[Rfam]
RNA sequence: ACAUGUGUAUUCACUUCAAUCCACAUAUGUUGGAGUGGAUUAGAAUGGAACUUAGUUUAAUUCUACUCUAAUCUACUUCAACACAUGUGGAUUGAGAUGAAUACAUGC
Numbered sequence: 001a002c003a004u005g006u007g008u009a010u011u012c013a014c015u016u017c018a019a020u021c022c023a024c025a026u027a028u029g030u031u032g033g034a035g036u037g038g039a040u041u042a043g044a045a046u047g048g049a050a051c052u053u054a055g056u057u058u059a060a061u062u063c064u065a066c067u068c069u070a071a072u073c074u075a076c077u078u079c080a081a082c083a084c085a086u087g088u089g090g091a092u093u094g095a096g097a098u099g100a101a102u103a104c105a106u107g108c
Base pairs, nucleotide, nucleotide: 004107005106006105007104008103009102010101011100012099013098016095017094018093019092020091021090022089023088024087025086026085028083029082030081031080032079035076036075037074038073039072040071041070042069043068046065047064